Small nucleolar RNA snR60/Z15/Z230/Z193/J17: an 85-nucleotide RNA sequence. It is one of the family's seed sequences.
RNA sequence: GUGAUGCAGAUGAUGACUGCAUAGUUCAGCAGAAACUCCAUGUAGAACACAGAGCAAUGUCUUUCGCUCCUAGCUGAUGCAUCAC
Numbered sequence: 001g002u003g004a005u006g007c008a009g010a011u012g013a014u015g016a017c018u019g020c021a022u023a024g025u026u027c028a029g030c031a032g033a034a035a036c037u038c039c040a041u042g043u044a045g046a047a048c049a050c051a052g053a054g055c056a057a058u059g060u061c062u063u064u065c066g067c068u069c070c071u072a073g074c075u076g077a078u079g080c081a082u083c084a085c
Base pairs, nucleotide, nucleotide: 004082005081006080007079008078